[Rfam]
RNA sequence: CUCCAAACAGUCCUCUGAUACCACCUUCUGAAAGGAAGAUUCGGAAUCAGAACUUAACCCUAAGUAUUUG
Numbered sequence: 001c002u003c004c005a006a007a008c009a010g011u012c013c014u015c016u017g018a019u020a021c022c023a024c025c026u027u028c029u030g031a032a033a034g035g036a037a038g039a040u041u042c043g044g045a046a047u048c049a050g051a052a053c054u055u056a057a058c059c060c061u062a063a064g065u066a067u068u069u070g
Stems, first nucleotide, its partner, number of pairs: 009054003015050004
This 70-nucleotide part of an RNA from Cadophora sp. M221 belongs to the Rfam family "Ascomycota telomerase RNA". The family has 4 seed sequences and 475 matches in Rfam 15.1. The pairing is the family consensus, mapped onto this sequence. The organism belongs to Cadophora, within Eukaryota. On this family, see Qi et al., Nucleic Acids Res 2013: "The common ancestral core of vertebrate and fungal telomerase RNAs".